[Rfam]
RNA: Bacillaceae-1 RNA
Organism: Planococcus salinus
RNA sequence: AAUAGAGGAAGAUAAGCUAAGAACGCGAUAUCCUGUCGCAACGCUUAUCUGACCCACAUCGUGUGGG
Dot-bracket structure: ..........(((((((.......(((((.....)))))...)))))))...(((((.....)))))